[Rfam]
RNA sequence: CGAGACCACUCUGGAAAGCAGGGGCGUGCCCCUCGCCGAAGGUGCAAACCGCGUCACGGCGCGGUGAAGCUCUCAGGCCCCGAUGACAGAGGGGGAGGA
Numbered sequence: 001c002g003a004g005a006c007c008a009c010u011c012u013g014g015a016a017a018g019c020a021g022g023g024g025c026g027u028g029c030c031c032c033u034c035g036c037c038g039a040a041g042g043u044g045c046a047a048a049c050c051g052c053g054u055c056a057c058g059g060c061g062c063g064g065u066g067a068a069g070c071u072c073u074c075a076g077g078c079c080c081c082g083a084u085g086a087c088a089g090a091g092g093g094g095g096a097g098g099a
Base pairs, nucleotide, nucleotide: 006094007093009091010090011089012088013087020033021032022031023030035078036077037076038074039073042072044070048065049064050063051062052061
RNA: Glycine riboswitch aptamer
Organism: Marinactinospora thermotolerans